The record is an 81-nucleotide RNA from Myotis lucifugus, which matches "mir-574 microRNA precursor family" in Rfam. The base pairs follow the family's consensus structure, which was predicted with RNAalifold. On this family, see Nielsen et al., Anim Genet 2010: "MicroRNA identity and abundance in porcine skeletal muscles determined by deep sequencing". Rfam links the family to the GO terms RISC complex and miRNA-mediated post-transcriptional gene silencing. The match comes from Rfam's covariance-model search (90 bits).

[Rfam]
RNA sequence: AGACCGAGAGAGAGAGGCAGGGUCUGAUCCACAGCAUCAAUGGCAGCUGUUGAUCAGUACUUGCCUCUCUCUCUUUCUCUC
Numbered sequence: 001a002g003a004c005c006g007a008g009a010g011a012g013a014g015a016g017g018c019a020g021g022g023u024c025u026g027a028u029c030c031a032c033a034g035c036a037u038c039a040a041u042g043g044c045a046g047c048u049g050u051u052g053a054u055c056a057g058u059a060c061u062u063g064c065c066u067c068u069c070u071c072u073c074u075u076u077c078u079c080u081c
Stems, first nucleotide, its partner, number of pairs: 008073013024057006032049004
Dot-bracket structure: .......(((((((((((((...((((((..((((..........))))..))))))...)))))))))))))........